Overview:
Rfam assigns this 129-nucleotide sequence from Sylvietta virens to the family "Small nucleolar RNA SNORA77". Rfam's curators write: ACA63 (SNORA77) is a member of the H/ACA class of snoRNAs that guide the sites of modification of uridines to pseudouridines. This snoRNA was identified by computational screening and its expression in mouse experimentally verified by Northern blot and primer extension analysis. ACA63 is proposed to guide the pseudouridylation of 18S rRNA U814. The family has 19 seed sequences and 843 matches in Rfam 15.1. Gene Ontology terms of the family: nucleolus and RNA processing. It is annotated as an H/ACA-box small nucleolar RNA. Taxonomically the source falls in Sylvietta (Eukaryota, Deuterostomia, Euteleostomi, Theropoda). The family's consensus secondary structure was predicted with RNAalifold.
[Rfam]
RNA sequence: GCAGACUCACUCUGUGCUGAACUGCAGCCUUCAGUUCAGGUGCUUUUCUGUCUGCGAGAGUAAGAGCUCACAGGAGUGACGAUGGCCUUUCCUGUGGAAGGCUGUUACAGUUGCUGUUGGGACAGUUGC
Numbered sequence: 001g002c003a004g005a006c007u008c009a010c011u012c013u014g015u016g017c018u019g020a021a022c023u024g025c026a027g028c029c030u031u032c033a034g035u036u037c038a039g040g041u042g043c044u045u046u047u048c049u050g051u052c053u054g055c056g057a058g059a060g061u062a063a064g065a066g067c068u069c070a071c072a073g074g075a076g077u078g079a080c081g082a083u084g085g086c087c088u089u090u091c092c093u094g095u096g097g098a099a100g101g102c103u104g105u106u107a108c109a110g111u112u113g114c115u116g117u118u119g120g121g122a123c124a125g126u127u128g129c
Stems, first nucleotide, its partner, number of pairs: 001055006014043003017039004022034003067120002070117004075111001077109002083104005